[Rfam]
RNA sequence: CAAUGAAGGAAGCAUAUUAAUGUGCACAUAAAUUGAAAUGGUCUCUAUACUUGUCAUCUCUAAUGUCAUUUGGUUUUGAUUUAGGGGUAUGGUUCCGCAACAAAAUA
Numbered sequence: 001c002a003a004u005g006a007a008g009g010a011a012g013c014a015u016a017u018u019a020a021u022g023u024g025c026a027c028a029u030a031a032a033u034u035g036a037a038a039u040g041g042u043c044u045c046u047a048u049a050c051u052u053g054u055c056a057u058c059u060c061u062a063a064u065g066u067c068a069u070u071u072g073g074u075u076u077u078g079a080u081u082u083a084g085g086g087g088u089a090u091g092g093u094u095c096c097g098c099a100a101c102a103a104a105a106u107a
Stems, first nucleotide, its partner, number of pairs: 012025004041088003049080001051078001053074003
About this RNA
Shown here is a 107-nucleotide RNA sequence from Rhododendron simsii, a member of the family "Small nucleolar RNA snoR100". Pairs were carried over by alignment from the consensus structure, which was predicted with WAR. Its family is annotated with RNA processing and nucleolus in the Gene Ontology. For this family Rfam cites "Experimental RNomics: identification of 140 candidates for small non-messenger RNAs in the plant Arabidopsis thaliana" (Marker et al., Curr Biol, 2002). NCBI's taxonomy places the organism under Eukaryota, Streptophytina, Embryophyta, Magnoliopsida, Rhododendron.